Overview:
The family of this 198-nucleotide sequence from Paenibacillus crassostreae is "c-di-AMP riboswitch aptamer (ydaO/yuaA leader)".
RNA sequence: UUCUUAGUUUUGCUGAGUCCCUACCUUUAAGGUGGGGAACGGGGGAACCAAACGUAGCAACCUUUUUUCGGUGUGAGAGUCGAAAUUAGGAAGCUACAGGGGUGAAUCCUAGAUAAGGCUAUUAAGCCUUAUCUAGGUAGAGCGACUCUCACCGCUCGAAUCCGACAGCUAACCUCGUAAGCUUAAGUUUGAGAGAGG
Numbered sequence: 001u002u003c004u005u006a007g008u009u010u011u012g013c014u015g016a017g018u019c020c021c022u023a024c025c026u027u028u029a030a031g032g033u034g035g036g037g038a039a040c041g042g043g044g045g046a047a048c049c050a051a052a053c054g055u056a057g058c059a060a061c062c063u064u065u066u067u068u069c070g071g072u073g074u075g076a077g078a079g080u081c082g083a084a085a086u087u088a089g090g091a092a093g094c095u096a097c098a099g100g101g102g103u104g105a106a107u108c109c110u111a112g113a114u115a116a117g118g119c120u121a122u123u124a125a126g127c128c129u130u131a132u133c134u135a136g137g138u139a140g141a142g143c144g145a146c147u148c149u150c151a152c153c154g155c156u157c158g159a160a161u162c163c164g165a166c167a168g169c170u171a172a173c174c175u176c177g178u179a180a181g182c183u184u185a186a187g188u189u190u191g192a193g194a195g196a197g198g
Stems, first nucleotide, its partner, number of pairs: 012182003018038009039178006049099001100163003108137011140157004
A search with the family's covariance model found it, with a score of 84 bits.